Small nucleolar RNA SNORD35: an 83-nucleotide RNA sequence from Salmo trutta. Rfam links the family to the GO terms RNA processing and nucleolus. The match comes from Rfam's covariance-model search (66 bits). Pairs were carried over by alignment from the consensus structure, which was predicted with PFOLD. The organism belongs to Salmo, within Eukaryota. U35 is a C/D box snoRNA located in intron 6 of ribosomal protein L13A and intron 3 of ribosomal protein S11 in humans and at homologous positions in mouse and chicken ribosomal protein genes. It is annotated as a C/D-box small nucleolar RNA.
[Rfam]
RNA sequence: UGCAAAUGAUGUUUUUCUCACGAUGGUCUUCCAAGCCUUCUGGUUAUGACGACAACGCCUUAUGGCAUUACUGAUGCAACGAC
Numbered sequence: 001u002g003c004a005a006a007u008g009a010u011g012u013u014u015u016u017c018u019c020a021c022g023a024u025g026g027u028c029u030u031c032c033a034a035g036c037c038u039u040c041u042g043g044u045u046a047u048g049a050c051g052a053c054a055a056c057g058c059c060u061u062a063u064g065g066c067a068u069u070a071c072u073g074a075u076g077c078a079a080c081g082a083c
Stems, first nucleotide, its partner, number of pairs: 001078004